[Rfam]
RNA sequence: UGCCAAACCCUAUCUCCACCUCCACGUGGUGGUUGCAGAGAGUUCUUUCUUAAUGAAAAACUGCAGACGGAGAAGG
Number, nucleotide and partner (000 for none) at each position: 001u000002g000003c000004c000005a000006a000007a000008c000009c076010c075011u074012a000013u072014c000015u070016c069017c000018a030019c029020c028021u000022c000023c000024a000025c000026g000027u000028g020029g019030u018031g000032g000033u000034u000035g000036c000037a000038g000039a000040g000041a062042g061043u060044u059045c000046u057047u056048u000049c055050u000051u000052a000053a000054u000055g049056a047057a046058a000059a044060a043061c042062u041063g000064c000065a000066g000067a000068c000069g016070g015071a000072g013073a000074a011075g010076g009
RNA: drz-agam-1 ribozyme